The record is an 86-nucleotide RNA sequence from Rosa chinensis, which matches "Small nucleolar RNA SNORD25" in Rfam. Gene Ontology terms of the family: RNA processing and nucleolus. The family is grouped with related families in Rfam's "SNORD25 clan". NCBI's taxonomy places the organism under Eukaryota, Streptophytina, Spermatophyta, Gunneridae, Rosa. The family's RNA type in Rfam is C/D-box small nucleolar RNA.
RNA sequence: AGCAACGAUGAUGAGUUCUACAGACCUGUAAUGAUUUGCGAAAAUGAUCGUAUAUCUUUUUGAACAUCUAAGGGACUGAGAUUGCA
Numbered sequence: 001a002g003c004a005a006c007g008a009u010g011a012u013g014a015g016u017u018c019u020a021c022a023g024a025c026c027u028g029u030a031a032u033g034a035u036u037u038g039c040g041a042a043a044a045u046g047a048u049c050g051u052a053u054a055u056c057u058u059u060u061u062g063a064a065c066a067u068c069u070a071a072g073g074g075a076c077u078g079a080g081a082u083u084g085c086a
Stems, first nucleotide, its partner, number of pairs: 002085004006080001